[Rfam]
RNA sequence: CCGGUUCCGGUUCACGCCCGAUAUCCCAGGUCAGGAACGGGCGACCCGGCGGCC
Numbered sequence: 001c002c003g004g005u006u007c008c009g010g011u012u013c014a015c016g017c018c019c020g021a022u023a024u025c026c027c028a029g030g031u032c033a034g035g036a037a038c039g040g041g042c043g044a045c046c047c048g049g050c051g052g053c054c
Stems, first nucleotide, its partner, number of pairs: 003054003007049004015043006
Annotation: This 54-nucleotide RNA sequence belongs to the Rfam family "L31-Actinobacteria ribosomal protein leader". Rfam classes the family as a cis-regulatory leader.